[Rfam]
RNA: U5 spliceosomal RNA
Organism: Rosa chinensis
Nucleotides: 117
Stems, first nucleotide, its partner, number of pairs: 003077002006074001008067005014061005027053008098117005
Number, partner (000 for none) and nucleotide at each position: 001000a002000g003077c004076c005000a006074u007000g008067c009066g010065u011064u012063g013000a014061g015060c016059a017058c018057a019000g020000a021000g022000c023000g024000a025000a026000c027053u028052a029051u030050u031049c032048u033047u034046u035000c036000g037000c038000c039000u040000u041000u042000u043000a044000c045000u046034a047033a048032a049031g050030a051029a052028u053027a054000c055000c056000g057018u058017g059016u060015g061014u062000g063012u064011g065010g066009c067008g068000c069000u070000u071000u072000a073000a074006g075000c076004g077003g078000c079000a080000u081000a082000c083000g084000c085000c086000u087000a088000u089000u090000u091000u092000u093000g094000g095000a096000a097000g098117g099116g100115u101114g102113c103000a104000c105000c106000u107000c108000u109000g110000c111000g112000g113102g114101u115100g116099c117098c